Rfam assigns this 335-nucleotide part of an RNA from Lentisphaera araneosa to the family "Bacterial large subunit ribosomal RNA".
The organism belongs to Lentisphaera araneosa, within Bacteria.
Its family is annotated with structural constituent of ribosome and ribosome in the Gene Ontology.
The family's consensus secondary structure is taken from published work.
[Rfam]
RNA sequence: CGAGAGAAACCACGUUAAGGAACUCGGCAAAUUAGCCCCGUAACUUCGGGAGAAGGGGUGCCCCCUCAGGGGGGCCGCAGUUAAGAGGUCUGGGCGACUGUUUAGCAAAAACAUAGCACUCUGCAAACUCGAAAGAGGAAGUAUAGGGUGUGACACGUGACCAAUGCCAAAAGGUCAAAUGGAGAGGUUAGCCUUCGGGCGAAGCUUCGAAAUGAAGCCCUGGUGAAUGUCGGCCGUAACUAUAACGGUCCUAAGGUAGCGAAAUUCCUUGUCGGGUAAGUUCCGACCUGCACGAAUCGUGUAACGAUCCAGACACUGUCUCAACGUGGAUCUCG
Numbered sequence: 001c002g003a004g005a006g007a008a009a010c011c012a013c014g015u016u017a018a019g020g021a022a023c024u025c026g027g028c029a030a031a032u033u034a035g036c037c038c039c040g041u042a043a044c045u046u047c048g049g050g051a052g053a054a055g056g057g058g059u060g061c062c063c064c065c066u067c068a069g070g071g072g073g074g075c076c077g078c079a080g081u082u083a084a085g086a087g088g089u090c091u092g093g094g095c096g097a098c099u100g101u102u103u104a105g106c107a108a109a110a111a112c113a114u115a116g117c118a119c120u121c122u123g124c125a126a127a128c129u130c131g132a133a134a135g136a137g138g139a140a141g142u143a144u145a146g147g148g149u150g151u152g153a154c155a156c157g158u159g160a161c162c163a164a165u166g167c168c169a170a171a172a173g174g175u176c177a178a179a180u181g182g183a184g185a186g187g188u189u190a191g192c193c194u195u196c197g198g199g200c201g202a203a204g205c206u207u208c209g210a211a212a213u214g215a216a217g218c219c220c221u222g223g224u225g226a227a228u229g230u231c232g233g234c235c236g237u238a239a240c241u242a243u244a245a246c247g248g249u250c251c252u253a254a255g256g257u258a259g260c261g262a263a264a265u266u267c268c269u270u271g272u273c274g275g276g277u278a279a280g281u282u283c284c285g286a287c288c289u290g291c292a293c294g295a296a297u298c299g300u301g302u303a304a305c306g307a308u309c310c311a312g313a314c315a316c317u318g319u320c321u322c323a324a325c326g327u328g329g330a331u332c333u334c335g
Stems, first nucleotide, its partner, number of pairs: 001335004010329007018321003035059005044049001060075006076080001088314007095306002099113003116151008124141001128137003154301004159231003164228002166224004173219003179213002184208005191200002232250006251255001261288001271287006
Dot-bracket structure: ((((.....(((((((.(((..............(((((....(....).....)))))((((((....))))))(...).......(((((((((..(((.........)))..(((((((((...(((....)))...)..))))))))..((((.(((..((((((...(((...((...(((((..((......))...)))))...))...))).))))..)))))((((((.......))))))(...).....(.........((((((.....))))))).........))))...)).)))))))....))).)))))))..))))